[Rfam]
Notes: A member of the RNA family "tRNA" from Streptomyces sp. Z26, 73 nucleotides long. Lineage of the source: Bacteria > Actinomycetota > Actinomycetes > Streptomycetaceae > Streptomyces. Pairs were carried over by alignment from the consensus structure, which is taken from published work. By type it is a transfer RNA. Transfer RNA (tRNA) molecules are approximately 80 nucleotides in length.

Nucleotides: 073
Stems, first nucleotide, its partner, number of pairs: 001072007010025004027043005049065005
Number, partner (000 for none) and nucleotide at each position: 001072g002071g003070g004069c005068c006067u007066g008000u009000a010025g011024c012023g013022c014000a015000g016000c017000u018000g019000g020000u021000a022013g023012c024011g025010c026000a027043c028042c029041u030040c031039g032000u033000u034000c035000g036000c037000a038000a039031c040030g041029a042028g043027g044000g045000g046000g047000u048000c049065a050064g051063g052062g053061g054000u055000u056000c057000g058000a059000a060000u061053c062052c063051c064050c065049u066007c067006a068005g069004g070003u071002c072001c073000a